[Rfam]
RNA sequence: AAGAUUUUUAAGACGGUUCAGAGAAGCCGGCAAAAUCGCAGAUAUAGUGUGUCUCUCCGCGCGGAGGGUCAUGUUUUUGUGCGUCUUGUCGGUUUGUCGGCAGGGCGAUUUUCUU
Numbered sequence: 001a002a003g004a005u006u007u008u009u010a011a012g013a014c015g016g017u018u019c020a021g022a023g024a025a026g027c028c029g030g031c032a033a034a035a036u037c038g039c040a041g042a043u044a045u046a047g048u049g050u051g052u053c054u055c056u057c058c059g060c061g062c063g064g065a066g067g068g069u070c071a072u073g074u075u076u077u078u079g080u081g082c083g084u085c086u087u088g089u090c091g092g093u094u095u096g097u098c099g100g101c102a103g104g105g106c107g108a109u110u111u112u113c114u115u
Stems, first nucleotide, its partner, number of pairs: 003037006014029005046075006053068006079110001082107011
The family of this 115-nucleotide RNA sequence from Firmicutes bacterium CAG:240 is "PyrR binding site". Lineage of the source: Bacteria > Bacillati > Bacillota. The family's RNA type in Rfam is cis-regulatory element. Rfam 15.1 lists 1,498 matches to the family in 930 species. About the family: This family represents the PyrR binding site and terminator structure.